Rfam assigns this 47-nucleotide RNA from Desulfonema magnum to the family "Acido-Lenti-1 RNA". Taxonomically the source falls in Desulfonema (Bacteria, Pseudomonadati, Desulfobacteria, Desulfobacterales).
[Rfam]
RNA sequence: CCCGGCAAUGAAUUGCCGGGCUAUUUUCAUUCUGUCCCUACAGGACA
Numbered sequence: 001c002c003c004g005g006c007a008a009u010g011a012a013u014u015g016c017c018g019g020g021c022u023a024u025u026u027u028c029a030u031u032c033u034g035u036c037c038c039u040a041c042a043g044g045a046c047a
Base pairs, nucleotide, nucleotide: 001020002019003018004017005016006015007014008013034046035045036044037043
A search with the family's covariance model found it, with a score of 37 bits. The family's RNA type in Rfam is small RNA.